The family of this 61-nucleotide RNA from Pontivivens insulae is "Singlet oxygen resistance RNA X".
It is annotated as a small RNA.
Pairs were carried over by alignment from the consensus structure.
Its family is annotated with response to photooxidative stress in the Gene Ontology.
RNA sequence: AGACCGCGGGUCUUGAUACCUCCCUGUUGGACUUUGCCGGGCCUAGUGCCCGGCUUUUUUU
Numbered sequence: 001a002g003a004c005c006g007c008g009g010g011u012c013u014u015g016a017u018a019c020c021u022c023c024c025u026g027u028u029g030g031a032c033u034u035u036g037c038c039g040g041g042c043c044u045a046g047u048g049c050c051c052g053g054c055u056u057u058u059u060u061u
Stems, first nucleotide, its partner, number of pairs: 001013004036054007
Rfam describes the family as follows. SorX (RSs2461)like SorY is a singlet oxygen induced sRNA that counteracts oxidative stress by targeting mRNA for a transporter in Rhodobacter. It also has an impact on resistance against organic hydroperoxides. It targets SD sequence of potA mRNA via an aSD sequence. The aSD sequence and some neighbouring nucleotides are identical to the one of SorY (targets takP mRNA). Lineage of the source: Bacteria > Pseudomonadota > Alphaproteobacteria > Paracoccaceae > Pontivivens.